A member of the RNA family "Glutamine riboswitch aptamer (glnA leader)", 47 nucleotides long.
[Rfam]
RNA sequence: AUCGUUCAUCCCAAAAGGGACGCAAGUAAGCCGACUCGGAACGGAUU
Numbered sequence: 001a002u003c004g005u006u007c008a009u010c011c012c013a014a015a016a017g018g019g020a021c022g023c024a025a026g027u028a029a030g031c032c033g034a035c036u037c038g039g040a041a042c043g044g045a046u047u
Base pairs, nucleotide, nucleotide: 003043004042005041006040007039009020010019011018012017023044029036030035
For this family Rfam cites "Bacterial aptamers that selectively bind glutamine" (Ames and Breaker, RNA Biol, 2011).
Its family is annotated with glutamine binding in the Gene Ontology.